[Rfam]
RNA sequence: UAUGAAUCUAGUGGAAACAUUUCCGCACAAAGUAGACUACUGAAGAAAGUGUGCAGAAAUACUUCUGCUACAUUUUAA
Numbered sequence: 001u002a003u004g005a006a007u008c009u010a011g012u013g014g015a016a017a018c019a020u021u022u023c024c025g026c027a028c029a030a031a032g033u034a035g036a037c038u039a040c041u042g043a044a045g046a047a048a049g050u051g052u053g054c055a056g057a058a059a060u061a062c063u064u065c066u067g068c069u070a071c072a073u074u075u076u077a078a
Base pairs, nucleotide, nucleotide: 001078004075005074006073007072009070010069011068012067013066014065015064016063019060020059021058022057023056025054026053027052028051029050033048
The record is a 78-nucleotide RNA from Sarcophilus harrisii, which matches "mir-147 microRNA precursor family" in Rfam. It scores 70 bits against the family's covariance model. The literature on the family includes a 2008 paper in BMC Genomics by Kawaji et al., "Hidden layers of human small RNAs".